[Rfam]
RNA sequence: CUCUGGAGAGUCCUCUAAAAGGACACCGAAGGAGCAACCCUAAUUUAGGGGAAAUCUCUCAGGUCUAAAGAACAGAG
Numbered sequence: 001c002u003c004u005g006g007a008g009a010g011u012c013c014u015c016u017a018a019a020a021g022g023a024c025a026c027c028g029a030a031g032g033a034g035c036a037a038c039c040c041u042a043a044u045u046u047a048g049g050g051g052a053a054a055u056c057u058c059u060c061a062g063g064u065c066u067a068a069a070g071a072a073c074a075g076a077g
Stems, first nucleotide, its partner, number of pairs: 001077005011023004025064003028060002032058003038051002
RNA: Glycine riboswitch aptamer
Organism: Alkalicella caledoniensis